[Rfam]
RNA: c-di-AMP riboswitch aptamer (ydaO/yuaA leader)
Nucleotides: 163
Stems, first nucleotide, its partner, number of pairs: 012146003018043010044142006054076001077127003085103004106121004
Number, partner (000 for none) and nucleotide at each position: 001000a002000c003000g004000g005000u006000g007000a008000c009000g010000g011000c012146g013145c014144c015000g016000a017000a018043u019042c020041g021040c022039c023038g024037u025036g026035c027034u028000c029000c030000c031000g032000a033000a034027g035026g036025c037024a038023c039022g040021g041020c042019g043018a044142g045141c046140g047139g048138g049137g050000g051000a052000c053000c054076c055000a056000a057000u058000g059000c060000g061000g062000c063000c064000a065000u066000g067000a068000c069000a070000g071000g072000c073000c074000g075000c076054g077127g078126g079125g080000c081000g082000a083000a084000u085103c086102g087101c088100c089000g090000u091000c092000g093000u094000g095000a096000c097000g098000a099000c100088g101087g102086c103085g104000u105000a106121g107120c108119g109118c110000a111000c112000c113000g114000g115000u116000u117000u118109g119108c120107g121106c122000g123000a124000u125079c126078c127077c128000u129000g130000c131000a132000g133000c134000u135000a136000a137049c138048c139047c140046c141045g142044u143000a144014g145013g146012c147000a148000c149000g150000c151000a152000a153000c154000c155000g156000g157000a158000g159000a160000u161000g162000a163000a